RNA sequence: AUCGCAAGGUUGAGGCCAUAGCAGAAGUGCUUACUGUGUAGCCCUGUCAGAUUCCAAUAAAAUCUGCAAAUUCUGCU
Numbered sequence: 001a002u003c004g005c006a007a008g009g010u011u012g013a014g015g016c017c018a019u020a021g022c023a024g025a026a027g028u029g030c031u032u033a034c035u036g037u038g039u040a041g042c043c044c045u046g047u048c049a050g051a052u053u054c055c056a057a058u059a060a061a062a063u064c065u066g067c068a069a070a071u072u073c074u075g076c077u
Stems, first nucleotide, its partner, number of pairs: 012044001014043003020077007027039003048066006
RNA: Mammalian CPEB3 ribozyme